[Rfam]
RNA sequence: GUAGUCGGAUUCACAUCAAUCCACAUGUGUUGGGGUAGGUUGGAGUGGAACUUGAACUAAAUUUCACUCCAAUUCACUCCAAUACAUGUGGAUUGAGGUGAAUCUGACA
Numbered sequence: 001g002u003a004g005u006c007g008g009a010u011u012c013a014c015a016u017c018a019a020u021c022c023a024c025a026u027g028u029g030u031u032g033g034g035g036u037a038g039g040u041u042g043g044a045g046u047g048g049a050a051c052u053u054g055a056a057c058u059a060a061a062u063u064u065c066a067c068u069c070c071a072a073u074u075c076a077c078u079c080c081a082a083u084a085c086a087u088g089u090g091g092a093u094u095g096a097g098g099u100g101a102a103u104c105u106g107a108c109a
Base pairs, nucleotide, nucleotide: 004108005107006106007105008104009103010102011101012100013099014098016096017095018094019093020092021091022090023089024088025087026086027085028084029083030082031081032080035077036076038074039073040072041071042070043069045067046066047065
Dot-bracket structure: ...(((((((((((.(((((((((((((((((..((.((((((.(((.................))).)))))).))..))))))))))))))))).))))))))))).